[Rfam]
RNA sequence: CUGAGCUGGUGAUGAUACGAAGUUAUCCCUGUCUGAAAAAAGUAUUUUUGUUUUGUGGAGUUGUAACUCUGAGGCUCAG
Numbered sequence: 001c002u003g004a005g006c007u008g009g010u011g012a013u014g015a016u017a018c019g020a021a022g023u024u025a026u027c028c029c030u031g032u033c034u035g036a037a038a039a040a041a042g043u044a045u046u047u048u049u050g051u052u053u054u055g056u057g058g059a060g061u062u063g064u065a066a067c068u069c070u071g072a073g074g075c076u077c078a079g
Stems, first nucleotide, its partner, number of pairs: 001079007
Small nucleolar RNA R38: a 79-nucleotide RNA from Alligator mississippiensis. It scores 55 bits against the family's covariance model. From the family's description: snoR38 is a C/D box small nucleolar RNA conserved across yeast, human, Arabidopsis and rice. It is encoded in the intron of elongation factor-1 gamma in both pombe and cerevisiae. snoR38 guides the methylation of 2'-O-ribose sites in 28S rRNA. By type it is a C/D-box small nucleolar RNA. A reference for the family is Chen et al. (2003), "The high diversity of snoRNAs in plants: identification and comparative study of 120 snoRNA genes from Oryza sativa", Nucleic Acids Res. The organism belongs to Alligator, within Eukaryota. The family's consensus secondary structure was predicted with PFOLD.